[Rfam]
RNA: ALIL pseudoknot
RNA sequence: GGCGUAUUUCCGGCAGCGGAACUCGACCACAAACUCAAGUGAUCGUCGAUUACACCGACGCCCACAAAGCCGACUACGGGGUCGAGCCGAUCUGCCGGGUCCUGAGCCAGGCCGGUGGGUAGAUCGCCCCG
Number, nucleotide and partner (000 for none) at each position: 001g000002g000003c000004g000005u000006a000007u000008u000009u000010c000011c000012g000013g000014c000015a000016g030017c000018g028019g027020a000021a000022c000023u000024c000025g000026a000027c019028c018029a000030c016031a000032a000033a000034c000035u000036c000037a000038a000039g000040u000041g000042a000043u000044c000045g000046u000047c000048g000049a000050u000051u000052a000053c000054a000055c000056c000057g000058a000059c000060g000061c000062c000063c000064a000065c000066a000067a000068a000069g000070c000071c000072g000073a000074c000075u000076a000077c131078g130079g129080g128081g127082u000083c000084g000085a000086g000087c000088c126089g125090a000091u123092c122093u121094g120095c119096c118097g000098g000099g000100u000101c000102c000103u000104g000105a000106g000107c000108c000109a000110g000111g000112c000113c000114g000115g000116u000117g000118g096119g095120u094121a093122g092123a091124u000125c089126g088127c081128c080129c079130c078131g077